The record is a 315-nucleotide part of an RNA from an uncultured Verrucomicrobiota bacterium, which matches "Bacterial large subunit ribosomal RNA" in Rfam.

RNA sequence: GUAUAGGGCGGUUAAAUACUGCCCCGCCGAAUACCCAAGGUUUCCUGGGCUACGAUUUUCGUCCCAGGGUUAGCCGGAACCUAAACCAACCCUGUUAUCAGGAUGGUGAUGGAAAUUGGUUUAAUACUACCAAGCCAGAUCAUGGUUUGCAUGUGGAACCGCAUGGAACGUGUGUUGUAAGCCCAAUUGAAUGGGCAGGGCCGCUUGCGGCCCGCGCAACCCAUCAACGUGCCUAGAAAAAUCCACAUUCUUACACCAUGAAUGUCCGUACCGCAAACCAACACAGGUGGGUGGGCUGAAUAUGCUCAGGCGUAA
Numbered sequence: 001g002u003a004u005a006g007g008g009c010g011g012u013u014a015a016a017u018a019c020u021g022c023c024c025c026g027c028c029g030a031a032u033a034c035c036c037a038a039g040g041u042u043u044c045c046u047g048g049g050c051u052a053c054g055a056u057u058u059u060c061g062u063c064c065c066a067g068g069g070u071u072a073g074c075c076g077g078a079a080c081c082u083a084a085a086c087c088a089a090c091c092c093u094g095u096u097a098u099c100a101g102g103a104u105g106g107u108g109a110u111g112g113a114a115a116u117u118g119g120u121u122u123a124a125u126a127c128u129a130c131c132a133a134g135c136c137a138g139a140u141c142a143u144g145g146u147u148u149g150c151a152u153g154u155g156g157a158a159c160c161g162c163a164u165g166g167a168a169c170g171u172g173u174g175u176u177g178u179a180a181g182c183c184c185a186a187u188u189g190a191a192u193g194g195g196c197a198g199g200g201c202c203g204c205u206u207g208c209g210g211c212c213c214g215c216g217c218a219a220c221c222c223a224u225c226a227a228c229g230u231g232c233c234u235a236g237a238a239a240a241a242u243c244c245a246c247a248u249u250c251u252u253a254c255a256c257c258a259u260g261a262a263u264g265u266c267c268g269u270a271c272c273g274c275a276a277a278c279c280a281a282c283a284c285a286g287g288u289g290g291g292u293g294g295g296c297u298g299a300a301u302a303u304g305c306u307c308a309g310g311c312g313u314a315a
Stems, first nucleotide, its partner, number of pairs: 006024006025312004033292004039272002044068006053061002075268004080112002085107003089104001091102003116133005136264002140261007149250001152247006161232004168224001177201002181196004203221001205219005278287002294306003